[Rfam]
RNA: Small nucleolar RNA psi18S-1377
Organism: Drosophila gunungcola
RNA sequence: CCGUUCUUGUGUUAUUUGCUAAGCGAUUUCUCCAGCUUAGUGACUGUCAAACAGAACGCAUAUUAAAGUCAGCUAAUCACUCCAUAAUGUUGAGCCGACUUUCCAGGGCUUCAGCAUUACUAAAUGCGCGCCACAUUU
Numbered sequence: 001c002c003g004u005u006c007u008u009g010u011g012u013u014a015u016u017u018g019c020u021a022a023g024c025g026a027u028u029u030c031u032c033c034a035g036c037u038u039a040g041u042g043a044c045u046g047u048c049a050a051a052c053a054g055a056a057c058g059c060a061u062a063u064u065a066a067a068g069u070c071a072g073c074u075a076a077u078c079a080c081u082c083c084a085u086a087a088u089g090u091u092g093a094g095c096c097g098a099c100u101u102u103c104c105a106g107g108g109c110u111u112c113a114g115c116a117u118u119a120c121u122a123a124a125u126g127c128g129c130g131c132c133a134c135a136u137u138u
Base pairs, nucleotide, nucleotide: 002058003057004056005055006054007053010049011048016043017042018041019040020039021038022037086118087117088116089115090114093110094109095108096107